[Rfam]
RNA sequence: GAAAAGAUAGUCGCCCAAAGCGAUUUUUUUUAUAGCUGAAAUCUAGUUAAAUCAAACCUUUCAAAAGGGUAUUACAAAUCA
Numbered sequence: 001g002a003a004a005a006g007a008u009a010g011u012c013g014c015c016c017a018a019a020g021c022g023a024u025u026u027u028u029u030u031u032a033u034a035g036c037u038g039a040a041a042u043c044u045a046g047u048u049a050a051a052u053c054a055a056a057c058c059u060u061u062c063a064a065a066a067g068g069g070u071a072u073u074a075c076a077a078a079u080c081a
Stems, first nucleotide, its partner, number of pairs: 009025006035048001036046001038044001056070006
Background
Rfam assigns this 81-nucleotide RNA sequence from Pasteurella felis to the family "Aggregatibacter sRNA 82". Pairs were carried over by alignment from the consensus structure, which was predicted with RNAfold. Validated by RT-PCR, expression down-regulated during growth. It is annotated as a small RNA.